[Rfam]
RNA sequence: GAUGAACAAAGGCAACUCCGCCGAAAGGCGGAAGACGCAAAGCCACCGGUCUAAACCGCUCACGAAAGCGGCAUGACAGCGGGGACGCUCAU
Dot-bracket structure: ...........((...((((((....))))))....))....((.((((((....((((........))))...)))..)))))........
This 92-nucleotide sequence from Paenibacillus sp. FSL H7-0357 belongs to the Rfam family "c-di-GMP-I riboswitch aptamer". Its family is annotated with cyclic-di-GMP binding in the Gene Ontology.